Rfam assigns this 53-nucleotide RNA sequence to the family "Glutamine riboswitch aptamer (glnA leader)". Pairs were carried over by alignment from the consensus structure, which is taken from published work. Its family is annotated with glutamine binding in the Gene Ontology.
RNA sequence: CACGUUCAUCUUUUAAUUAAGACGGAAGUAGAUGUAAGUCGAAGGAACGCAUG
Numbered sequence: 001c002a003c004g005u006u007c008a009u010c011u012u013u014u015a016a017u018u019a020a021g022a023c024g025g026a027a028g029u030a031g032a033u034g035u036a037a038g039u040c041g042a043a044g045g046a047a048c049g050c051a052u053g
Stems, first nucleotide, its partner, number of pairs: 003049005009022004025050001031040003